[Rfam]
RNA: Small nucleolar RNA snoR145
Organism: Trema andersonii
RNA sequence: AGGCGAAGGUCUCAGCGGAGGGUUAUGGACUCUGUGAUGGAGACCUCUCUAAUAUAUAGACAAUUCUAAACCUUCAAAGAAUAAAUUUUGCCAAAUCGUAGGAUGUCCAUAAUUUAUUAGUUUUUGGAUCAUCUGGAACCCUCGGCUAUAAUAAU
Number, nucleotide and partner (000 for none) at each position: 001a000002g000003g000004c000005g075006a074007a073008g072009g071010u000011c020012u019013c018014a000015g000016c000017g000018g013019a012020g011021g000022g000023u000024u000025a000026u000027g047028g000029a000030c042031u041032c040033u039034g038035u000036g000037a000038u034039g033040g032041a031042g030043a000044c000045c000046u000047c027048u000049c000050u000051a000052a000053u000054a000055u000056a000057u000058a000059g000060a000061c000062a000063a000064u000065u000066c000067u000068a000069a000070a000071c009072c008073u007074u006075c005076a000077a000078a000079g000080a000081a000082u000083a000084a000085a000086u000087u000088u000089u000090g146091c145092c144093a000094a142095a000096u000097c000098g000099u000100a000101g000102g133103a132104u000105g130106u128107c127108c126109a125110u000111a123112a122113u000114u000115u000116a000117u000118u000119a000120g000121u000122u112123u111124u000125u109126g108127g107128a106129u000130c105131a000132u103133c102134u000135g000136g000137a000138a000139c000140c000141c000142u094143c000144g092145g091146c090147u000148a000149u000150a000151a000152u000153a000154a000155u000